[Rfam]
The record is a 102-nucleotide RNA sequence from Paenibacillus xylanivorans, which matches "Purine riboswitch aptamer" in Rfam.
The family's consensus secondary structure is taken from published work.
Lineage of the source: Bacteria > Bacillati > Caryophanales > Paenibacillaceae > Paenibacillus.

RNA sequence: UUGUUGAAAUAGAUAUUUGCUCGUAUAACGCCGGGGAUAGGGCCCGGAAGUAUCUACCCGGGAACCGUAAAUUUCCGGACUACGAGGAGAUACGGCUGAGAG
Numbered sequence: 001u002u003g004u005u006g007a008a009a010u011a012g013a014u015a016u017u018u019g020c021u022c023g024u025a026u027a028a029c030g031c032c033g034g035g036g037a038u039a040g041g042g043c044c045c046g047g048a049a050g051u052a053u054c055u056a057c058c059c060g061g062g063a064a065c066c067g068u069a070a071a072u073u074u075c076c077g078g079a080c081u082a083c084g085a086g087g088a089g090a091u092a093c094g095g096c097u098g099a100g101a102g
Base pairs, nucleotide, nucleotide: 018088020086021085022084023083024082025081031047032046033045034044035043058078059077060076061075062074063073064072